[Rfam]
The family of this 294-nucleotide RNA sequence from Helicobacter suis is "5' ureB small RNA". NCBI's taxonomy places the organism under Bacteria, Epsilonproteobacteria, Helicobacteraceae, Helicobacter, Helicobacter suis. For this family Rfam cites "Helicobacter pylori 5'ureB-sRNA, a cis-encoded antisense small RNA, negatively regulates ureAB expression by transcription termination" (Wen et al., J Bacteriol, 2013).
RNA sequence: CGGUGGGGAUUUGUUGUGGAGAAAUAAAGUGAAUGUGGGUAUCAAUCCCGCCAGCUGUAACAAUUAAACCUUCACCAGCUAGUGCUUCUGUAGCAGGACCUACACAAAGGCGGUUGCAAACGCCGUCUUGAAUGUCUUUAUUGCCGGCUUUACCAAUGCCAUGGAUCUUGCCAUCUUUAAUGCCAAUGUCGGCUUUGUAAAUCCCGGUGUAGUCUACAAUUAGGGCGUUAGUAAUCACUAAAUCUAACUCAUGGCUGCUGGGGCUAUUGGUUUGGCCCAUCCCAUCGCGGAUAG
Numbered sequence: 001c002g003g004u005g006g007g008g009a010u011u012u013g014u015u016g017u018g019g020a021g022a023a024a025u026a027a028a029g030u031g032a033a034u035g036u037g038g039g040u041a042u043c044a045a046u047c048c049c050g051c052c053a054g055c056u057g058u059a060a061c062a063a064u065u066a067a068a069c070c071u072u073c074a075c076c077a078g079c080u081a082g083u084g085c086u087u088c089u090g091u092a093g094c095a096g097g098a099c100c101u102a103c104a105c106a107a108a109g110g111c112g113g114u115u116g117c118a119a120a121c122g123c124c125g126u127c128u129u130g131a132a133u134g135u136c137u138u139u140a141u142u143g144c145c146g147g148c149u150u151u152a153c154c155a156a157u158g159c160c161a162u163g164g165a166u167c168u169u170g171c172c173a174u175c176u177u178u179a180a181u182g183c184c185a186a187u188g189u190c191g192g193c194u195u196u197g198u199a200a201a202u203c204c205c206g207g208u209g210u211a212g213u214c215u216a217c218a219a220u221u222a223g224g225g226c227g228u229u230a231g232u233a234a235u236c237a238c239u240a241a242a243u244c245u246a247a248c249u250c251a252u253g254g255c256u257g258c259u260g261g262g263g264c265u266a267u268u269g270g271u272u273u274g275g276c277c278c279a280u281c282c283c284a285u286c287g288c289g290g291a292u293a294g
Stems, first nucleotide, its partner, number of pairs: 001294001003292001006288001008286002011165002015161002018076002021073003030053002034050002037048004057069002078153001081150002085146001090144004095139002097136003105130001107129005113123002170276004177270006183263002192226006206215002229260003236253002242249001